[Rfam]
A member of the RNA family "Leucine operon leader" from Affinibrenneria salicis, 147 nucleotides long. From the family's description: At least 6 amino acid operons are known to be regulated by attenuation. It scores 77 bits against the family's covariance model. By type it is a cis-regulatory leader. On this family, see Kolter and Yanofsky, Annu Rev Genet 1982: "Attenuation in amino acid biosynthetic operons". NCBI's taxonomy places the organism under Bacteria, Pseudomonadota, Gammaproteobacteria, Enterobacterales, Affinibrenneria.

RNA sequence: CGGCGACCAAAUUCCAUGUUCAACUUCACUUUCCUGCUAAGCCUACUACUAAACGCAUCUCAUUUGCGCGGUACGCUGGUGGGCGAAGCUCUGAACUAAUUUAGCCGUCACCCAUAAAAAACCCCGCGCCAAUGCGCGGGUUUUUUU
Number, nucleotide and partner (000 for none) at each position: 001c000002g000003g000004c107005g000006a000007c104008c000009a102010a101011a000012u099013u098014c000015c000016a000017u000018g096019u095020u094021c093022a000023a000024c000025u000026u000027c000028a000029c000030u086031u085032u000033c083034c082035u081036g080037c079038u078039a077040a000041g000042c000043c000044u000045a000046c000047u073048a072049c071050u070051a000052a000053a000054c068055g067056c066057a065058u000059c000060u000061c000062a000063u000064u000065u057066g056067c055068g054069c000070g050071g049072u048073a047074c000075g000076c000077u039078g038079g037080u036081g035082g034083g033084c000085g031086a030087a000088g000089c000090u000091c000092u000093g021094a020095a019096c018097u000098a013099a012100u000101u010102u009103a000104g007105c000106c000107g004108u000109c000110a000111c000112c000113c000114a000115u000116a000117a000118a144119a143120a142121a141122c140123c000124c139125c138126g137127c136128g135129c134130c000131a000132a000133u000134g129135c128136g127137c126138g125139g124140g122141u121142u120143u119144u118145u000146u000147u000